[Rfam]
Shown here is a 46-nucleotide RNA from Sitophilus oryzae, a member of the family "Histone 3' UTR stem-loop". It is annotated as a cis-regulatory element. The base pairs follow the family's consensus structure, which is taken from published work. For this family Rfam cites "The sequence of the stem and flanking sequences at the 3' end of histone mRNA are critical determinants for the binding of the stem-loop binding protein" (Williams and Marzluff, Nucleic Acids Res, 1995). Rfam describes the family as follows. The mRNAs of metazoan histone genes lack a poly-A tail. 3' end processing occurs at a site between a highly conserved stem-loop (modelled by this family) and a purine rich region around 20 nts downstream (the histone downstream element, or HDE).
RNA sequence: ACAAAGGUCCUUUUCAGGACCACAAAUAAUUUGAUUGAGAAAAUUG
Numbered sequence: 001a002c003a004a005a006g007g008u009c010c011u012u013u014u015c016a017g018g019a020c021c022a023c024a025a026a027u028a029a030u031u032u033g034a035u036u037g038a039g040a041a042a043a044u045u046g
Stems, first nucleotide, its partner, number of pairs: 006021006
Dot-bracket structure: .....((((((....)))))).........................